[Rfam]
RNA sequence: GCAGGUGAAUGCAACGUCAAGCGAUGGGCGUUGCGCUCCAUAUUGUCUUACUUCCUGAUUUAGAAUUAAUGCAUAGCACAUUUAAUUCGAAACAUGCCGGCCAGUGCGCCGGCUUUU
Numbered sequence: 001g002c003a004g005g006u007g008a009a010u011g012c013a014a015c016g017u018c019a020a021g022c023g024a025u026g027g028g029c030g031u032u033g034c035g036c037u038c039c040a041u042a043u044u045g046u047c048u049u050a051c052u053u054c055c056u057g058a059u060u061u062a063g064a065a066u067u068a069a070u071g072c073a074u075a076g077c078a079c080a081u082u083u084a085a086u087u088c089g090a091a092a093c094a095u096g097c098c099g100g101c102c103a104g105u106g107c108g109c110c111g112g113c114u115u116u117u
Stems, first nucleotide, its partner, number of pairs: 001046004007038002010035009063088006070078003096113006

Annotation: Shown here is a 117-nucleotide sequence from Pantoea sp. M_5, a member of the family "Fumarate/nitrate reductase regulator sRNA". Rfam classes the family as a small RNA. The literature on the family includes a 2010 paper in Mol Microbiol by Durand and Storz, "Reprogramming of anaerobic metabolism by the FnrS small RNA".